The family of this 132-nucleotide RNA from Cervus hanglu is "Small nucleolar RNA SNORA72". Rfam 15.1 lists 1,541 matches to the family in 547 species. A reference for the family is Ganot et al. (1997), "The family of box ACA small nucleolar RNAs is defined by an evolutionarily conserved secondary structure and ubiquitous sequence elements essential for RNA accumulation", Genes Dev. About the family: U72 is a member of the H/ACA class of snoRNAs. The snoRNA gene is located in intron 4 of the ribosomal L30 protein gene in human, mouse and chicken.
[Rfam]
RNA sequence: AAAAAAAAAAAGACGCUGUUCUGAUUUUGUAAUAAUCAGGGCAGGCUAAACAUUCGCUAUAUUAAGACCAUGCAUGUGUCCCCAGACCUAGUUCUUUGCCUAGGUCUGGUUUUAUAAAUGCUGGUGAUAAAC
Numbered sequence: 001a002a003a004a005a006a007a008a009a010a011a012g013a014c015g016c017u018g019u020u021c022u023g024a025u026u027u028u029g030u031a032a033u034a035a036u037c038a039g040g041g042c043a044g045g046c047u048a049a050a051c052a053u054u055c056g057c058u059a060u061a062u063u064a065a066g067a068c069c070a071u072g073c074a075u076g077u078g079u080c081c082c083c084a085g086a087c088c089u090a091g092u093u094c095u096u097u098g099c100c101u102a103g104g105u106c107u108g109g110u111u112u113u114a115u116a117a118a119u120g121c122u123g124g125u126g127a128u129a130a131a132c
Base pairs, nucleotide, nucleotide: 016044017043018042019041020040021039022038023037024036025035026034067125068124069123070122072121073120082109083108084107085106086105087104088103089102090101091100